[Rfam]
This 78-nucleotide RNA sequence from Eptesicus fuscus belongs to the Rfam family "mir-574 microRNA precursor family".
RNA sequence: AGGCUCAGAGAGAGGCAGGGUCUGAUCUGCAGCCUCCAUGCAGCUGUUAAUCAGCUGUUGCCUCUCUCUUUCUCUCCA
Numbered sequence: 001a002g003g004c005u006c007a008g009a010g011a012g013a014g015g016c017a018g019g020g021u022c023u024g025a026u027c028u029g030c031a032g033c034c035u036c037c038a039u040g041c042a043g044c045u046g047u048u049a050a051u052c053a054g055c056u057g058u059u060g061c062c063u064c065u066c067u068c069u070u071u072c073u074c075u076c077c078a
Stems, first nucleotide, its partner, number of pairs: 007069012020056001022054005030046004

Notes: The source organism's lineage runs through Eukaryota, Opisthokonta, Deuterostomia, Amniota and Eptesicus. Gene Ontology terms of the family: RISC complex and miRNA-mediated post-transcriptional gene silencing.